Small nucleolar RNA SNORD82: a 68-nucleotide sequence from Dasypus novemcinctus. Rfam's curators put it in the seed alignment. About the family: snoRNA U82 or Z25 is found in both humans and mice. The family's RNA type in Rfam is C/D-box small nucleolar RNA. On this family, see Galardi et al., Mol Cell Biol 2002: "Purified box C/D snoRNPs are able to reproduce site-specific 2'-O-methylation of target RNA in vitro".
RNA sequence: AGCACAAAUGAUGAACAAGAAAGGGACUUAAUACUGAGACCUGAUGUUACAUUGUGAUACUGAUGAGC
Numbered sequence: 001a002g003c004a005c006a007a008a009u010g011a012u013g014a015a016c017a018a019g020a021a022a023g024g025g026a027c028u029u030a031a032u033a034c035u036g037a038g039a040c041c042u043g044a045u046g047u048u049a050c051a052u053u054g055u056g057a058u059a060c061u062g063a064u065g066a067g068c
Stems, first nucleotide, its partner, number of pairs: 002068002005065002